[Rfam]
RNA sequence: UGCCAUUGCUAAGUCAAGGCUUCUUCCUGUGCAUUUUUUGCCGCUCAAUGGGAGUUUUGUCUGUUACAGCUCUGGUAGAUUGAUGCCCGUCCGCCGCCCUAUCUCUUUCUGAGUUUAGAGUUGAUCGGCUUUCGUUUUGAAUGCUUAUCGUAAAGGAUGGGCAGUGCUUUGUUUUUGAGUUGAGCUCUGAAUACCGUCAUUUGAUGGUACCUCCUGUAUCAGAGCUCUUAGUAACAUUUCACACAUCG
Numbered sequence: 001u002g003c004c005a006u007u008g009c010u011a012a013g014u015c016a017a018g019g020c021u022u023c024u025u026c027c028u029g030u031g032c033a034u035u036u037u038u039u040g041c042c043g044c045u046c047a048a049u050g051g052g053a054g055u056u057u058u059g060u061c062u063g064u065u066a067c068a069g070c071u072c073u074g075g076u077a078g079a080u081u082g083a084u085g086c087c088c089g090u091c092c093g094c095c096g097c098c099c100u101a102u103c104u105c106u107u108u109c110u111g112a113g114u115u116u117a118g119a120g121u122u123g124a125u126c127g128g129c130u131u132u133c134g135u136u137u138u139g140a141a142u143g144c145u146u147a148u149c150g151u152a153a154a155g156g157a158u159g160g161g162c163a164g165u166g167c168u169u170u171g172u173u174u175u176u177g178a179g180u181u182g183a184g185c186u187c188u189g190a191a192u193a194c195c196g197u198c199a200u201u202u203g204a205u206g207g208u209a210c211c212u213c214c215u216g217u218a219u220c221a222g223a224g225c226u227c228u229u230a231g232u233a234a235c236a237u238u239u240c241a242c243a244c245a246u247c248g
Stems, first nucleotide, its partner, number of pairs: 003075003017062004023054005031041003086161006095123002097120001099118003103113003128144002131141004164242003170236003182227004188221003192209007
The family of this 248-nucleotide sequence from Penicillium occitanis is "Small nucleolar RNA snR191".
Clan: SNORA74 clan.
A reference for the family is Badis et al. (2003), "A snoRNA that guides the two most conserved pseudouridine modifications within rRNA confers a growth advantage in yeast", RNA.